[Rfam]
RNA sequence: UUAACAAAUGAUGUUAACUAUCACGUGUCAUGUUUUUAUUGGAUGAUAACUGUCACAUGUCCAUGAAAGAUGAAAUGAAUUGUUGUUUUCAUUGAUCAAUCAAAACAUGACACGUGACAAUCAUCAUUC
Numbered sequence: 001u002u003a004a005c006a007a008a009u010g011a012u013g014u015u016a017a018c019u020a021u022c023a024c025g026u027g028u029c030a031u032g033u034u035u036u037u038a039u040u041g042g043a044u045g046a047u048a049a050c051u052g053u054c055a056c057a058u059g060u061c062c063a064u065g066a067a068a069g070a071u072g073a074a075a076u077g078a079a080u081u082g083u084u085g086u087u088u089u090c091a092u093u094g095a096u097c098a099a100u101c102a103a104a105a106c107a108u109g110a111c112a113c114g115u116g117a118c119a120a121u122c123a124u125c126a127u128u129c
Stems, first nucleotide, its partner, number of pairs: 021117003025113002029109003033105004038100005